[Rfam]
A member of the RNA family "Glycine riboswitch aptamer" from Staphylococcus massiliensis, 91 nucleotides long. NCBI's taxonomy places the organism under Bacteria, Bacillati, Caryophanales, Staphylococcaceae, Staphylococcus massiliensis. It scores 77 bits against the family's covariance model. This family represents the bacterial glycine riboswitch.

RNA sequence: AUGAUCAAUGUUAGAGAGAAUGAUACAAAAAUCAUCGCCGAAGGAGCAAGCAUUACGCGAAUCUCUCAGGCAAAAGGAUAACAUUGGGACG
Numbered sequence: 001a002u003g004a005u006c007a008a009u010g011u012u013a014g015a016g017a018g019a020a021u022g023a024u025a026c027a028a029a030a031a032u033c034a035u036c037g038c039c040g041a042a043g044g045a046g047c048a049a050g051c052a053u054u055a056c057g058c059g060a061a062u063c064u065c066u067c068a069g070g071c072a073a074a075a076g077g078a079u080a081a082c083a084u085u086g087g088g089a090c091g
Base pairs, nucleotide, nucleotide: 006086007085008084009083010082011081012080013079020035021034022033023032037071038070039069040067041066044065045064046063050058051057